Overview
The family of this 151-nucleotide RNA sequence from Phenylobacterium hankyongense is "caulobacter sRNA CC3513". It scores 48 bits against the family's covariance model. For this family Rfam cites "Small non-coding RNAs in Caulobacter crescentus" (Landt et al., Mol Microbiol, 2008). Pairs were carried over by alignment from the consensus structure.

RNA sequence: GUCCGCAUCGGCGGGGCUCGGAGAGGGUUCGCGUCAGGCCAAGCGAACCCAAGCCGAUCCCGCGAGGGUCGGAUGGUGGGCGUGGCCGUGAUGGUGCGCGAAGCGGGUCAUCGGGGCGGCCUAUAGCGGAGCCGGCGGCGAAAGGCGAGUC
Numbered sequence: 001g002u003c004c005g006c007a008u009c010g011g012c013g014g015g016g017c018u019c020g021g022a023g024a025g026g027g028u029u030c031g032c033g034u035c036a037g038g039c040c041a042a043g044c045g046a047a048c049c050c051a052a053g054c055c056g057a058u059c060c061c062g063c064g065a066g067g068g069u070c071g072g073a074u075g076g077u078g079g080g081c082g083u084g085g086c087c088g089u090g091a092u093g094g095u096g097c098g099c100g101a102a103g104c105g106g107g108u109c110a111u112c113g114g115g116g117c118g119g120c121c122u123a124u125a126g127c128g129g130a131g132c133c134g135g136c137g138g139c140g141a142a143a144g145g146c147g148a149g150u151c
Stems, first nucleotide, its partner, number of pairs: 002015005016150004020055002025050004030045003033040001058145002063140002067136001069130002072127001076124006083118001085117003091111005097105002